[Rfam]
RNA sequence: UUCCCUAGGGCUAGUAUUACCCUAGGGAACUUCUGAAACAUGAAACA
Numbered sequence: 001u002u003c004c005c006u007a008g009g010g011c012u013a014g015u016a017u018u019a020c021c022c023u024a025g026g027g028a029a030c031u032u033c034u035g036a037a038a039c040a041u042g043a044a045a046c047a
Base pairs, nucleotide, nucleotide: 001029002028003027004026005025006024007023008022009021010020

Record summary: ssNA-helicase RNA: a 47-nucleotide sequence from bacterium 1xD42-87. Pairs were carried over by alignment from the consensus structure, which is taken from published work. A search with the family's covariance model found it, with a score of 52 bits.